The family of this 104-nucleotide RNA sequence from Magnetospirillum aberrantis is "rpsB sRNA".
The family's RNA type in Rfam is small RNA.
Lineage of the source: Bacteria > Rhodospirillales > Rhodospirillaceae > Magnetospirillum > Magnetospirillum aberrantis.
RNA sequence: CGCACGCGGGUUCGCGGCGGCGUGCUUGCACGUCUUCCGCUUCCGGUGUCGCCCCGAUGGGGCGACCAUUGCCCGCGGAGGCUCAACCGGAGAAAAGAAGGAAU
Numbered sequence: 001c002g003c004a005c006g007c008g009g010g011u012u013c014g015c016g017g018c019g020g021c022g023u024g025c026u027u028g029c030a031c032g033u034c035u036u037c038c039g040c041u042u043c044c045g046g047u048g049u050c051g052c053c054c055c056g057a058u059g060g061g062g063c064g065a066c067c068a069u070u071g072c073c074c075g076c077g078g079a080g081g082c083u084c085a086a087c088c089g090g091a092g093a094a095a096a097g098a099a100g101g102a103a104u
Base pairs, nucleotide, nucleotide: 001080003078005077006076007075008074009073010072014040015039016038017037048066049065050064051063052062053061054060055059